RNA sequence: UCGCUCUAUGGAAAUGGUGCCUUCCAUGUAACAAACCGCCGCAAGGCUGAUGGCGCCUACAAUUUA
Numbered sequence: 001u002c003g004c005u006c007u008a009u010g011g012a013a014a015u016g017g018u019g020c021c022u023u024c025c026a027u028g029u030a031a032c033a034a035a036c037c038g039c040c041g042c043a044a045g046g047c048u049g050a051u052g053g054c055g056c057c058u059a060c061a062a063u064u065u066a
Base pairs, nucleotide, nucleotide: 010025011024012023013022016057017056018055019054020053021052038047039046040045
RNA: Fluoride riboswitch aptamer (crcB RNA motif)